[Rfam]
RNA sequence: AGGGUAGACGAACUAACCCCUAUUGAAGUUUAGUUCUUACGUUAAGGAGAAAUAGUAUG
Numbered sequence: 001a002g003g004g005u006a007g008a009c010g011a012a013c014u015a016a017c018c019c020c021u022a023u024u025g026a027a028g029u030u031u032a033g034u035u036c037u038u039a040c041g042u043u044a045a046g047g048a049g050a051a052a053u054a055g056u057a058u059g
Base pairs, nucleotide, nucleotide: 001021002020003019004018010036011035012034013033014032015031016030
RNA: DUF2815 RNA